RNA sequence: CGAAAAACCAGCGUCAAUCGGCGCUGGCAAGGACUUCAAAAGCCGGCAAAACCGUGCAGGGAAUCGGUAAGCGGUGACGCGUUGCGUCAGUGGGACCGGGGGCAGUGGUAAAAAGGUUCAUGCCCUGCAACCAAUGUGGACGGAUUCUAUGCAGGGUUUUAUAGAUCGUCAACACUAUAGAAUAGCAAAUGUAUAACUAUUUGUAA
Numbered sequence: 001c002g003a004a005a006a007a008c009c010a011g012c013g014u015c016a017a018u019c020g021g022c023g024c025u026g027g028c029a030a031g032g033a034c035u036u037c038a039a040a041a042g043c044c045g046g047c048a049a050a051a052c053c054g055u056g057c058a059g060g061g062a063a064u065c066g067g068u069a070a071g072c073g074g075u076g077a078c079g080c081g082u083u084g085c086g087u088c089a090g091u092g093g094g095a096c097c098g099g100g101g102g103c104a105g106u107g108g109u110a111a112a113a114a115g116g117u118u119c120a121u122g123c124c125c126u127g128c129a130a131c132c133a134a135u136g137u138g139g140a141c142g143g144a145u146u147c148u149a150u151g152c153a154g155g156g157u158u159u160u161a162u163a164g165a166u167c168g169u170c171a172a173c174a175c176u177a178u179a180g181a182a183u184a185g186c187a188a189a190u191g192u193a194u195a196a197c198u199a200u201u202u203g204u205a206a
Stems, first nucleotide, its partner, number of pairs: 008027007043108003051068004076088005135174003140169004146165004
RNA: Burkholderia sRNA Bp1_Cand738_SIPHT
Organism: Paraburkholderia fynbosensis